[Rfam]
RNA: Y RNA
RNA sequence: GUCUGGUCCAAAAGUAUUGAAUUACUUCAAUCGUUCAGUCAGUUACGGAUUAAACUCCUUAUUCUACUCUUCCCCUGCUACUCAUUACUGCACUUGACUAGGCAUAA
Number, nucleotide and partner (000 for none) at each position: 001g103002u102003c101004u100005g099006g098007u097008c096009c000010a095011a094012a000013a000014g091015u090016a086017u000018u084019g083020a082021a000022u000023u000024a000025c000026u000027u000028c000029a000030a000031u000032c000033g000034u000035u000036c000037a000038g068039u000040c000041a065042g064043u000044u000045a000046c000047g000048g000049a000050u000051u000052a000053a000054a000055c000056u000057c000058c000059u000060u000061a000062u000063u000064c042065u041066a000067c000068u038069c000070u000071u000072c000073c000074c000075c000076u000077g000078c000079u000080a000081c000082u020083c019084a018085u000086u016087a000088c000089u000090g015091c014092a000093c000094u011095u010096g008097a007098c006099u005100a004101g003102g002103c001104a000105u000106a000107a000